[Rfam]
TPP riboswitch aptamer (THI element): a 152-nucleotide RNA sequence from Pseudoteredinibacter isoporae.

RNA sequence: ACGCAUCCUAAGGGGUGGCUCUGAUUAUUAAAUCCCCAGAGCCUGAGAUGUCACUCGCAGCCAGGAUUACUUAAACCUGCAUUGUCGAACUGGACAAACCCUUUGAACCUGAUCCGGACAAUGCCGGCGUAGGAAUAGGAAGGCCAUACUGG
Numbered sequence: 001a002c003g004c005a006u007c008c009u010a011a012g013g014g015g016u017g018g019c020u021c022u023g024a025u026u027a028u029u030a031a032a033u034c035c036c037c038a039g040a041g042c043c044u045g046a047g048a049u050g051u052c053a054c055u056c057g058c059a060g061c062c063a064g065g066a067u068u069a070c071u072u073a074a075a076c077c078u079g080c081a082u083u084g085u086c087g088a089a090c091u092g093g094a095c096a097a098a099c100c101c102u103u104u105g106a107a108c109c110u111g112a113u114c115c116g117g118a119c120a121a122u123g124c125c126g127g128c129g130u131a132g133g134a135a136u137a138g139g140a141a142g143g144c145c146a147u148a149c150u151g152g
Base pairs, nucleotide, nucleotide: 006140007139008138009137010136011102012101013100014099016096017043018042019041020040021039022038023037050095051094052093108133109132110131111130114127115126116125117124
Dot-bracket structure: .....(((((((((.((((((((.............)))))))......(((........................................))))..)))).....((((..((((......))))..))))..)))))............
The source organism's lineage runs through Bacteria, Pseudomonadati, Gammaproteobacteria, Cellvibrionaceae and Pseudoteredinibacter. It scores 68 bits against the family's covariance model.